Shown here is a 229-nucleotide part of an RNA from Hanseniaspora uvarum, a member of the family "Eukaryotic large subunit ribosomal RNA". The organism belongs to Hanseniaspora, within Eukaryota.
[Rfam]
RNA sequence: GGCAUUUGAUCAGACAUGGUGUUUUUUGCAUGCACUCGCCUCUCGUGGGCUUGGGCCUCUCAAAAAUUUCACUGGGCCAACAUCAAUUCUGGCAGCAGGAUAAAUCAUUAAGAAUGUAGCUACUUCGGUAGUGUUAUAGCUUUUUGGAAUACUGUUAGCCGGGAUUGAGGACUGCGCUUCGGCAAGGAUGUUGGCAUAAUGGUUAAAUGCCGCCCGUCUUGAAACACGG
Numbered sequence: 001g002g003c004a005u006u007u008g009a010u011c012a013g014a015c016a017u018g019g020u021g022u023u024u025u026u027u028g029c030a031u032g033c034a035c036u037c038g039c040c041u042c043u044c045g046u047g048g049g050c051u052u053g054g055g056c057c058u059c060u061c062a063a064a065a066a067u068u069u070c071a072c073u074g075g076g077c078c079a080a081c082a083u084c085a086a087u088u089c090u091g092g093c094a095g096c097a098g099g100a101u102a103a104a105u106c107a108u109u110a111a112g113a114a115u116g117u118a119g120c121u122a123c124u125u126c127g128g129u130a131g132u133g134u135u136a137u138a139g140c141u142u143u144u145u146g147g148a149a150u151a152c153u154g155u156u157a158g159c160c161g162g163g164a165u166u167g168a169g170g171a172c173u174g175c176g177c178u179u180c181g182g183c184a185a186g187g188a189u190g191u192u193g194g195c196a197u198a199a200u201g202g203u204u205a206a207a208u209g210c211c212g213c214c215c216g217u218c219u220u221g222a223a224a225c226a227c228g229g
Base pairs, nucleotide, nucleotide: 001211002210003209004208005207006206007205008204009203010202011201012200017074021072022071078193079192080191081190082189083188084187214229215228216227217226